Shown here is a 137-nucleotide sequence from Roseburia sp. CAG:182, a member of the family "Ribosomal protein L10 leader".

[Rfam]
RNA sequence: UAAUAGCAAAGCAUAUUGCCGAAGACAGUAGGUGCCGCAAGGCGUAAACGUAAGUGCCUGCCGAGGAAAUGUAGAUGAUAUCUAUAUGAAUGAUUCGUCCUCUCUGUCUUCCACAGAGAGGACUUUUUUAGACUUCC
Numbered sequence: 001u002a003a004u005a006g007c008a009a010a011g012c013a014u015a016u017u018g019c020c021g022a023a024g025a026c027a028g029u030a031g032g033u034g035c036c037g038c039a040a041g042g043c044g045u046a047a048a049c050g051u052a053a054g055u056g057c058c059u060g061c062c063g064a065g066g067a068a069a070u071g072u073a074g075a076u077g078a079u080a081u082c083u084a085u086a087u088g089a090a091u092g093a094u095u096c097g098u099c100c101u102c103u104c105u106g107u108c109u110u111c112c113a114c115a116g117a118g119a120g121g122a123c124u125u126u127u128u129u130a131g132a133c134u135u136c137c
Base pairs, nucleotide, nucleotide: 028061029060030059031058032057033056034043035042036041098122099121100120101119102118103117104116105115106114107113
Rfam classes the family as a cis-regulatory leader.